[Rfam]
RNA sequence: AUAAUGAUACUUUUGCCCAGCCACAGCCUUGUAAAAACAAGAACACGCAAUGGGGGCAGCCCGGUGAGAACCACGGGGAGGUUAGAUUCCUAUGG
Numbered sequence: 001a002u003a004a005u006g007a008u009a010c011u012u013u014u015g016c017c018c019a020g021c022c023a024c025a026g027c028c029u030u031g032u033a034a035a036a037a038c039a040a041g042a043a044c045a046c047g048c049a050a051u052g053g054g055g056g057c058a059g060c061c062c063g064g065u066g067a068g069a070a071c072c073a074c075g076g077g078g079a080g081g082u083u084a085g086a087u088u089c090c091u092a093u094g095g
Stems, first nucleotide, its partner, number of pairs: 012092001013059006060078003064074003079091003
pemK RNA: a 95-nucleotide RNA. The sequence is in the family's curated seed alignment. It is annotated as a cis-regulatory element.